[Rfam]
RNA sequence: UGGCGCCCAACGUGGGGCCUGGAUACCGGGGGAUAACGUGAGGGUCCGAUGACGAAGAAAGAAGGGGUGCACCCGUUCAAAUAGUUCGGAGAUGUCACAGUAGCCUGCUGUGACCGAGCCGACAGGUAAGUUGGUCGUUCAAUCAUGGGGCAAGAAUUGAGUCAGCAUCAGAAAUAUGUGAUACAGCUAAGAGAAGCUUUACAGGCAAGAGGAGUAAAGGUUACAACUAAGGAUUUAUUUCAUUUCUUUGAUUUCAUAAAAGACAUCUGCCCAU
Numbered sequence: 001u002g003g004c005g006c007c008c009a010a011c012g013u014g015g016g017g018c019c020u021g022g023a024u025a026c027c028g029g030g031g032g033a034u035a036a037c038g039u040g041a042g043g044g045u046c047c048g049a050u051g052a053c054g055a056a057g058a059a060a061g062a063a064g065g066g067g068u069g070c071a072c073c074c075g076u077u078c079a080a081a082u083a084g085u086u087c088g089g090a091g092a093u094g095u096c097a098c099a100g101u102a103g104c105c106u107g108c109u110g111u112g113a114c115c116g117a118g119c120c121g122a123c124a125g126g127u128a129a130g131u132u133g134g135u136c137g138u139u140c141a142a143u144c145a146u147g148g149g150g151c152a153a154g155a156a157u158u159g160a161g162u163c164a165g166c167a168u169c170a171g172a173a174a175u176a177u178g179u180g181a182u183a184c185a186g187c188u189a190a191g192a193g194a195a196g197c198u199u200u201a202c203a204g205g206c207a208a209g210a211g212g213a214g215u216a217a218a219g220g221u222u223a224c225a226a227c228u229a230a231g232g233a234u235u236u237a238u239u240u241c242a243u244u245u246c247u248u249u250g251a252u253u254u255c256a257u258a259a260a261a262g263a264c265a266u267c268u269g270c271c272c273a274u
Base pairs, nucleotide, nucleotide: 006031007030008029012026013025014024037051038050039049086126087125088123093118096112097111098110099109100108136150138149139148140147141146158201159200160199161197162196209249210248211247212246213245214244218236219235220234221233222232259274262271264269
Record summary:
A member of the RNA family "Mason-Pfizer monkey virus packaging signal" from Nannospalax galili, 274 nucleotides long. Pairs were carried over by alignment from the consensus structure, which was predicted with PFOLD. Rfam classes the family as a cis-regulatory element. Rfam 15.1 lists 2,921 matches to the family in 53 species. A search with the family's covariance model found it, with a score of 145 bits. NCBI's taxonomy places the organism under Eukaryota, Eumetazoa, Chordata, Euarchontoglires, Nannospalax.